Rfam assigns this 199-nucleotide RNA from Diegovirus dv7502Stx to the family "Gammaproteobacterial sRNA STnc100". The family has 24 seed sequences and 137 matches in Rfam 15.1. The family's RNA type in Rfam is small RNA. The organism belongs to Diegovirus dv7502Stx, within Viruses.

[Rfam]
RNA sequence: UCUGAUAAUAGAUGUGUUAGAAAAUUUCUGCAUGGUGAAUCCCCCUGUGCGGAGGGGCAAUCAGCGAGUAGGUAUAUGGGAUAAUCGCGGAUUCAGGUGCUGGUACUGAAUUCACCGGGAGGCACCCGGCACCAUGCAGUUAUGCAAUGUAAAUGUUCACACAAGCAAAUCCCCUCUUCGGAGGGGAUUUUUUAAAAAA
Numbered sequence: 001u002c003u004g005a006u007a008a009u010a011g012a013u014g015u016g017u018u019a020g021a022a023a024a025u026u027u028c029u030g031c032a033u034g035g036u037g038a039a040u041c042c043c044c045c046u047g048u049g050c051g052g053a054g055g056g057g058c059a060a061u062c063a064g065c066g067a068g069u070a071g072g073u074a075u076a077u078g079g080g081a082u083a084a085u086c087g088c089g090g091a092u093u094c095a096g097g098u099g100c101u102g103g104u105a106c107u108g109a110a111u112u113c114a115c116c117g118g119g120a121g122g123c124a125c126c127c128g129g130c131a132c133c134a135u136g137c138a139g140u141u142a143u144g145c146a147a148u149g150u151a152a153a154u155g156u157u158c159a160c161a162c163a164a165g166c167a168a169a170u171c172c173c174c175u176c177u178u179c180g181g182a183g184g185g186g187a188u189u190u191u192u193u194a195a196a197a198a199a
Stems, first nucleotide, its partner, number of pairs: 014145003030137008042057005078088001080086001089113004094108003115129005154199001156197002167190009